[Rfam]
RNA sequence: GUGAAGUUAAUCACAACAAACAUAUACCCCUUUUGUUUGACCGUGAAAAAUUUCUCCCAUCCCCUUUGUUCGUAUAAAUAGAAAAAUGCCUUGCAACUUUUAAGCUGCAAGGCAUUU
Numbered sequence: 001g002u003g004a005a006g007u008u009a010a011u012c013a014c015a016a017c018a019a020a021c022a023u024a025u026a027c028c029c030c031u032u033u034u035g036u037u038u039g040a041c042c043g044u045g046a047a048a049a050a051u052u053u054c055u056c057c058c059a060u061c062c063c064c065u066u067u068g069u070u071c072g073u074a075u076a077a078a079u080a081g082a083a084a085a086a087u088g089c090c091u092u093g094c095a096a097c098u099u100u101u102a103a104g105c106u107g108c109a110a111g112g113c114a115u116u117u
Stems, first nucleotide, its partner, number of pairs: 003054006011046004017039006070083001073081001087114009097104001
Shown here is a 117-nucleotide RNA from Neobacillus vireti, a member of the family "RNA Staph. aureus E (RoxS)". Rfam links the family to the GO term regulation of translational initiation. From the family's description: It was shown to be regulated by the presence of nitric oxide (NO). In Bacillus subtilis it controls expression of genes with functions related to oxidative stress and oxidation-reduction reactions and it was renamed RoxS (for related to oxidative stress). On this family, see Geissmann et al., Nucleic Acids Res 2009: "A search for small noncoding RNAs in Staphylococcus aureus reveals a conserved sequence motif for regulation". Pairs were carried over by alignment from the consensus structure, which is taken from published work. The family's RNA type in Rfam is small RNA.